[Rfam]
RNA: BsrC
Organism: Bacillus coahuilensis
RNA sequence: UGUAUCUUAAACGACGUUAGCCCUACCUCUCUAACAUCCUUACGGCUCCGAAGCCGAUCCAGUGUGAGUAAGUGUUACGAAAUUCAU
Number, nucleotide and partner (000 for none) at each position: 001u000002g000003u000004a000005u000006c000007u000008u000009a000010a000011a000012c000013g000014a000015c000016g000017u000018u000019a000020g000021c000022c000023c000024u000025a000026c000027c000028u000029c000030u000031c000032u000033a000034a000035c066036a065037u000038c000039c062040u061041u000042a000043c056044g055045g054046c053047u052048c000049c000050g000051a000052a047053g046054c045055c044056g043057a000058u000059c000060c000061a040062g039063u000064g000065u036066g035067a000068g000069u000070a000071a000072g000073u000074g000075u000076u000077a000078c000079g000080a000081a000082a000083u000084u000085c000086a000087u000